[Rfam]
RNA: Molybdenum/Tungsten riboswitch aptamer (Moco RNA motif)
Organism: Venatorbacter sp. C2-1
RNA sequence: CUGGAGUCAAACCACCGAGCUGCCGCGCCUACGUUGCCAACCUGUUUUACAGCCGCAAUAGGGCGCGCCAGCCGUGACCGCCACGCACUGCAACCGCACAGCGUCCGGCCACCAGGGUCCGCAAAGAAAUGCCCGGGCCUCCCACUCUUGGAAAGGUGAACAAUGAAACCGCAA
Numbered sequence: 001c002u003g004g005a006g007u008c009a010a011a012c013c014a015c016c017g018a019g020c021u022g023c024c025g026c027g028c029c030u031a032c033g034u035u036g037c038c039a040a041c042c043u044g045u046u047u048u049a050c051a052g053c054c055g056c057a058a059u060a061g062g063g064c065g066c067g068c069c070a071g072c073c074g075u076g077a078c079c080g081c082c083a084c085g086c087a088c089u090g091c092a093a094c095c096g097c098a099c100a101g102c103g104u105c106c107g108g109c110c111a112c113c114a115g116g117g118u119c120c121g122c123a124a125a126g127a128a129a130u131g132c133c134c135g136g137g138c139c140u141c142c143c144a145c146u147c148u149u150g151g152a153a154a155g156g157u158g159a160a161c162a163a164u165g166a167a168a169c170c171g172c173a174a
Base pairs, nucleotide, nucleotide: 013158014157015156016155019072020071021070022069024067025066026065027064028063029062033059034058035057036056074112075111076110078108079107080106115140116139117138118137119136120135121134125130141151142150
Dot-bracket structure: ............((((..((((.((((((...((((...................))))..)))))).)))).(((.(((.........................))).)))..(((((((...(....)...)))))))((.......))...))))................